Rfam assigns this 243-nucleotide RNA from Kordiimonas lacus to the family "permuted transfer-messenger RNA". About the family: Bacterial tmRNA, also known as 10Sa RNA or SsrA, is named for its dual tRNA and mRNA-like properties. A reference for the family is Williams and Bartel (1996), "Phylogenetic analysis of tmRNA secondary structure", RNA. It is annotated as a non-coding RNA gene.

[Rfam]
Nucleotides: 243
Stems, first nucleotide, its partner, number of pairs: 001166005014155004026144003030141003036052005053126007167182003
Number, partner (000 for none) and nucleotide at each position: 001166g002165g003164c004163g005162a006000u007000a008000a009000a010000c011000g012000g013000u014155g015154c016153a017152u018000u019000g020000a021000g022000u023000a024000g025000c026144u027143a028142u029000u030141g031140c032139g033000g034000a035000c036052c037051c038050g039049g040048g041000g042000g043000c044000a045000g046000u047000a048040c049039c050038c051037g052036g053126c054125g055124c056123c057122u058121c059120c060000a061000c062000c063000a064000g065000g066000a067000a068000c069000g070000g071000c072000c073000u074000g075000a076000u077000u078000a079000c080000c081000u082000g083000g084000a085000u086000a087000a088000u089000c090000a091000a092000g093000g094000c095000c096000u097000a098000c099000g100000g101000u102000c103000a104000c105000c106000a107000g108000a109000c110000c111000g112000u113000u114000g115000c116000u117000g118000a119000u120059g121058g122057g123056g124055g125054c126053g127000a128000a129000c130000c131000a132000g133000g134000a135000u136000c137000g138000a139032c140031g141030u142028g143027u144026a145000u146000c147000g148000a149000a150000a151000g152017a153016u154015g155014u156000u157000g158000c159000u160000c161000u162005u163004c164003g165002c166001c167182c168181g169180g170000g171000a172000u173000g174000g175000c176000a177000c178000c179000g180169c181168c182167g183000u184000g185000a186000u187000g188000g189000g190000c191000c192000a193000c194000c195000u196000u197000a198000a199000a200000u201000a202000a203000a204000u205000g206000c207000u208000a209000a210000c211000g212000a213000c214000a215000a216000c217000a218000a219000c220000g221000u222000c223000g224000a225000g226000u227000a228000u229000g230000c231000u232000g233000u234000u235000g236000c237000u238000g239000c240000g241000u242000a243000a